The record is a 51-nucleotide RNA from Mitsuaria sp. WAJ17, which matches "nhaA-I RNA" in Rfam. NCBI's taxonomy places the organism under Bacteria, Pseudomonadati, Betaproteobacteria, Sphaerotilaceae, Roseateles. From the family's description: Acidobacteria, Alphaproteobacteria, Betaproteobacteria and Gammaproteobacteria, Verrucomicrobia, cand. division NC10.

[Rfam]
RNA sequence: GGGUGCCAGGUCUUGCGGCCUGGCAGGUUGAGCGCAGGUCGGGCCGCCGCG
Numbered sequence: 001g002g003g004u005g006c007c008a009g010g011u012c013u014u015g016c017g018g019c020c021u022g023g024c025a026g027g028u029u030g031a032g033c034g035c036a037g038g039u040c041g042g043g044c045c046g047c048c049g050c051g
Stems, first nucleotide, its partner, number of pairs: 005024008033051003037048003